[Rfam]
RNA sequence: CUUGGGCUUUCCUGUAAGUCGCUCUGGAUAAGAGCGUCUGCUAAAUGACCAAUU
Numbered sequence: 001c002u003u004g005g006g007c008u009u010u011c012c013u014g015u016a017a018g019u020c021g022c023u024c025u026g027g028a029u030a031a032g033a034g035c036g037u038c039u040g041c042u043a044a045a046u047g048a049c050c051a052a053u054u
Base pairs, nucleotide, nucleotide: 013043014041015040016039020036021035022034023033024032025031
Source information: A member of the RNA family "UnaL2 LINE 3' element" from Coregonus sp. 'balchen', 54 nucleotides long. By type it is a cis-regulatory element. Lineage of the source: Eukaryota > Bilateria > Salmoniformes > Coregoninae > Coregonus. Pairs were carried over by alignment from the consensus structure, which is taken from published work. The literature on the family includes a 2004 paper in RNA by Baba et al., "Solution structure of an RNA stem-loop derived from the 3' conserved region of eel LINE UnaL2". The eel long interspersed element (LINE) UnaL2 and its partner short interspersed element (SINE) share a conserved 3' tail containing a stem-loop that is critical for their retrotransposition.